RNA sequence: UGAACCCGUGCGGGAGAGCGUUCUGACAAUCCGGUCAGAGCCCCUGAAGGAGCAAGCCCUCCCCGCGAACCUCUCAAGGCAAAGGACCGCUCGGGCGAG
Numbered sequence: 001u002g003a004a005c006c007c008g009u010g011c012g013g014g015a016g017a018g019c020g021u022u023c024u025g026a027c028a029a030u031c032c033g034g035u036c037a038g039a040g041c042c043c044c045u046g047a048a049g050g051a052g053c054a055a056g057c058c059c060u061c062c063c064c065g066c067g068a069a070c071c072u073c074u075c076a077a078g079g080c081a082a083a084g085g086a087c088c089g090c091u092c093g094g095g096c097g098a099g
Base pairs, nucleotide, nucleotide: 006094007093008092010090011089012088013087020041021040022039023038024037025036043079044078045077046075047074050073051072052071056066057065
The record is a 99-nucleotide RNA sequence from Nonomuraea endophytica, which matches "Glycine riboswitch aptamer" in Rfam. About the family: This family represents the bacterial glycine riboswitch.